[Rfam]
RNA sequence: GGGCACCCAAUGUGGGGCUCAAGUAUGAGGGGUACGGUGAGGGACGCCAUCAAGGUCAGCCUACACAGAAGGAUUAAGAAACCCGGAGGAAAGAGCGUCAUGGGAGCCUGCCACAGACUCAUGCUCCGGUAAGCGGGCAGCGAAUAUGGGACAGGAAAUCAGCCAGCAUAAGUUGUUUAUAGAGAGUUUAAGUAAGGCUUUAAAGGUGCGAGGAGUAAAGGUGAAAAUAAAACAAUUGUGUAAAUAUUUUGACUAUAUCCAGGAUGUCUGCCCUU
Numbered sequence: 001g002g003g004c005a006c007c008c009a010a011u012g013u014g015g016g017g018c019u020c021a022a023g024u025a026u027g028a029g030g031g032g033u034a035c036g037g038u039g040a041g042g043g044a045c046g047c048c049a050u051c052a053a054g055g056u057c058a059g060c061c062u063a064c065a066c067a068g069a070a071g072g073a074u075u076a077a078g079a080a081a082c083c084c085g086g087a088g089g090a091a092a093g094a095g096c097g098u099c100a101u102g103g104g105a106g107c108c109u110g111c112c113a114c115a116g117a118c119u120c121a122u123g124c125u126c127c128g129g130u131a132a133g134c135g136g137g138c139a140g141c142g143a144a145u146a147u148g149g150g151a152c153a154g155g156a157a158a159u160c161a162g163c164c165a166g167c168a169u170a171a172g173u174u175g176u177u178u179a180u181a182g183a184g185a186g187u188u189u190a191a192g193u194a195a196g197g198c199u200u201u202a203a204a205g206g207u208g209c210g211a212g213g214a215g216u217a218a219a220g221g222u223g224a225a226a227a228u229a230a231a232a233c234a235a236u237u238g239u240g241u242a243a244a245u246a247u248u249u250u251g252a253c254u255a256u257a258u259c260c261a262g263g264a265u266g267u268c269u270g271c272c273c274u275u
Stems, first nucleotide, its partner, number of pairs: 006031003012026003036047001037045002081130003088127002094122001095120001099116001101113003136152001141148002159202001161200001162198003209251005215245002219237002222234002261274003265270001